EcpR1: a 108-nucleotide sequence from Devosia geojensis. The organism belongs to Devosia, within Bacteria.
[Rfam]
RNA sequence: CUCCCUACGGUUCUUCUCAGGUCCGCCGCAACUCCUGAGUCCGUAGGGCGGCUGGUCCGGUCGCCGUGAGAGUGGCCUCUUCAACAUGCGCGCCGGACCAGCCACUCC
Numbered sequence: 001c002u003c004c005c006u007a008c009g010g011u012u013c014u015u016c017u018c019a020g021g022u023c024c025g026c027c028g029c030a031a032c033u034c035c036u037g038a039g040u041c042c043g044u045a046g047g048g049c050g051g052c053u054g055g056u057c058c059g060g061u062c063g064c065c066g067u068g069a070g071a072g073u074g075g076c077c078u079c080u081u082c083a084a085c086a087u088g089c090g091c092g093c094c095g096g097a098c099c100a101g102c103c104a105c106u107c108c
Stems, first nucleotide, its partner, number of pairs: 003048008016039006050103011